The record is a 95-nucleotide sequence from Odobenus rosmarus, which matches "Small nucleolar RNA SNORD91 family" in Rfam. Its family is annotated with nucleolus and RNA processing in the Gene Ontology. The match comes from Rfam's covariance-model search (107 bits).
[Rfam]
RNA sequence: UCUAGGAGCCAAUGAUGCUUUUAUUCACAAUGUCUGAACCGGUCUGAAGCAUCCCAGUGAUGCAACCUCUAUGUGGUGCUGAGGCUUUUCUGCCA
Numbered sequence: 001u002c003u004a005g006g007a008g009c010c011a012a013u014g015a016u017g018c019u020u021u022u023a024u025u026c027a028c029a030a031u032g033u034c035u036g037a038a039c040c041g042g043u044c045u046g047a048a049g050c051a052u053c054c055c056a057g058u059g060a061u062g063c064a065a066c067c068u069c070u071a072u073g074u075g076g077u078g079c080u081g082a083g084g085c086u087u088u089u090c091u092g093c094c095a
Base pairs, nucleotide, nucleotide: 004089005088006087007086008085009084010083